This 75-nucleotide RNA sequence from Hemiprocne comata belongs to the Rfam family "Small nucleolar RNA SNORD66". Pairs were carried over by alignment from the consensus structure, which was predicted with RNAalifold. The family has 20 seed sequences and 1,346 matches in Rfam 15.1.
RNA sequence: CUCCUGUGAUGAGCUCUUUGUGCCAUUGUGUCUGGGCCACUGAUGUUCCAUGAUGGUAAUGAGGAUCUGAUGGGG
Numbered sequence: 001c002u003c004c005u006g007u008g009a010u011g012a013g014c015u016c017u018u019u020g021u022g023c024c025a026u027u028g029u030g031u032c033u034g035g036g037c038c039a040c041u042g043a044u045g046u047u048c049c050a051u052g053a054u055g056g057u058a059a060u061g062a063g064g065a066u067c068u069g070a071u072g073g074g075g
Base pairs, nucleotide, nucleotide: 001075002074003073004072